[Rfam]
RNA sequence: UCUUGGCUGACGCGCGCAUAUGCGCGUGUCUCUGGUUGAUGCUCCUUGUUGGGACAGGCCGAGGCAGCCCUAG
Numbered sequence: 001u002c003u004u005g006g007c008u009g010a011c012g013c014g015c016g017c018a019u020a021u022g023c024g025c026g027u028g029u030c031u032c033u034g035g036u037u038g039a040u041g042c043u044c045c046u047u048g049u050u051g052g053g054a055c056a057g058g059c060c061g062a063g064g065c066a067g068c069c070c071u072a073g
Stems, first nucleotide, its partner, number of pairs: 006023002010019001012017001024068002027066005034059001037056002